Enterococcus sRNA A5: a 68-nucleotide sequence from Enterococcus faecalis. The family's consensus secondary structure was predicted with RNAfold. The source organism's lineage runs through Bacteria, Bacillati, Enterococcaceae, Enterococcus and Enterococcus faecalis. The sequence is in the family's curated seed alignment.

RNA sequence: AGCUGAACUCUGUUCAGCUCCAUUUUUUUCAGACGCUACUUCUUCUACUUUGGUCGGUUGAGAAGUAG
Dot-bracket structure: ((((((((...))))))))................(((((((((..(((......))).)))))))))